[Rfam]
RNA sequence: CCGAGAACCUUUUGAAUCACCACACCGUUUGAUUCAAAAGGUUCUUACAAA
Numbered sequence: 001c002c003g004a005g006a007a008c009c010u011u012u013u014g015a016a017u018c019a020c021c022a023c024a025c026c027g028u029u030u031g032a033u034u035c036a037a038a039a040g041g042u043u044c045u046u047a048c049a050a051a
Stems, first nucleotide, its partner, number of pairs: 003046017
RNA: Plastid-ccsA-ndhD-1 3UTR RNA
Organism: Carapa guianensis